The record is a 108-nucleotide sequence from Rhododendron simsii, which matches "Small nucleolar RNA snoR100" in Rfam. Its family is annotated with nucleolus and RNA processing in the Gene Ontology. Pairs were carried over by alignment from the consensus structure, which was predicted with WAR. The source organism's lineage runs through Eukaryota, Spermatophyta, Ericales, Rhodoreae and Rhododendron.
RNA sequence: CAAUGAAAGAAGCAUGGUAAUGUGUACAUAAAUUGAAUUGGAUCUCUAGGCUUUUCCUCUUUGAUGCCAUUCGGCUUUAAUUUGGGGGUAUGGUUCCGCAGCAAAUCA
Numbered sequence: 001c002a003a004u005g006a007a008a009g010a011a012g013c014a015u016g017g018u019a020a021u022g023u024g025u026a027c028a029u030a031a032a033u034u035g036a037a038u039u040g041g042a043u044c045u046c047u048a049g050g051c052u053u054u055u056c057c058u059c060u061u062u063g064a065u066g067c068c069a070u071u072c073g074g075c076u077u078u079a080a081u082u083u084g085g086g087g088g089u090a091u092g093g094u095u096c097c098g099c100a101g102c103a104a105a106u107c108a
Base pairs, nucleotide, nucleotide: 012025013024014023015022040091042089043088044087050081052079055074056073